Shown here is a 65-nucleotide RNA, a member of the family "DnaX ribosomal frameshifting element". Rfam describes the family as follows. This family represents a ribosomal frameshifting element found in the mRNA of the dnaX gene in E. coli.
[Rfam]
RNA sequence: AGCAGGGAGCAUCCACACCAAAAAAGAAUGAGCCGGCGGCGCCAGGAAUAGCGCGGCCGGCAAAC
Number, nucleotide and partner (000 for none) at each position: 001a000002g000003c000004a000005g000006g000007g000008a000009g000010c000011a000012u000013c000014c000015a000016c000017a000018c000019c000020a000021a000022a000023a000024a000025a000026g000027a000028a000029u000030g000031a000032g061033c060034c059035g058036g057037c056038g000039g054040c053041g000042c000043c000044a000045g000046g000047a000048a000049u000050a000051g000052c000053g040054c039055g000056g037057c036058c035059g034060g033061c032062a000063a000064a000065c000